RNA sequence: CUCCCCAUUGCUAAGUCAAGGCUCCUUCCUGCACCUGGUGCAAUAUCUCAAUGGAUAGAUGUCUGUUACAGCUUUGGGAGAUUGAUCUCGACCCGCGUCUUCCGGCCGUUAUGGCUGUGGAGUCGGUCGAACCCCGUCUUGGGGUUUGGCCACAAAGGGCCUGAGAACGAUUCGUUUUUGAGUAGAAUACCGUCACCACCUCGUGUGGGCCUCCAAUGGCGGCUUUCUUAGUAACGUUUCAUACAUAU
Number, nucleotide and partner (000 for none) at each position: 001c000002u000003c077004c076005c000006c000007a073008u000009u000010g000011c000012u000013a000014a000015g000016u000017c000018a000019a064020g063021g062022c061023u000024c000025c058026u057027u054028c053029c000030u042031g041032c040033a039034c038035c000036u000037g000038g034039u033040g032041c031042a030043a000044u000045a000046u000047c000048u000049c000050a000051a000052u000053g028054g027055a000056u000057a026058g025059a000060u000061g022062u021063c020064u019065g000066u000067u000068a000069c000070a000071g000072c000073u007074u000075u000076g004077g003078g000079a000080g000081a000082u000083u000084g000085a000086u000087c000088u164089c163090g162091a000092c159093c158094c157095g000096c000097g124098u000099c122100u121101u119102c000103c117104g116105g115106c114107c113108g000109u000110u000111a000112u000113g107114g106115c105116u104117g103118u000119g101120g000121a100122g099123u000124c097125g151126g150127u000128c000129g000130a146131a145132c144133c143134c142135c141136g140137u000138c000139u000140u136141g135142g134143g133144g132145u131146u130147u000148g000149g000150c126151c125152a000153c000154a000155a000156a000157g094158g093159g092160c000161c000162u090163g089164a088165g000166a000167a242168c000169g240170a239171u000172u000173c236174g235175u234176u000177u000178u000179u000180g000181a000182g000183u000184a228185g227186a226187a225188u000189a000190c000191c221192g220193u219194c218195a000196c000197c207198a206199c205200c000201u000202c000203g000204u000205g199206u198207g197208g000209g000210c000211c000212u000213c000214c000215a000216a000217u000218g194219g193220c192221g191222g000223c000224u000225u187226u186227c185228u184229u000230a000231g000232u000233a000234a175235c174236g173237u000238u000239u170240c169241a000242u167243a000244c000245a000246u000247a000248u000
RNA: Small nucleolar RNA snR191
Organism: Aplosporella prunicola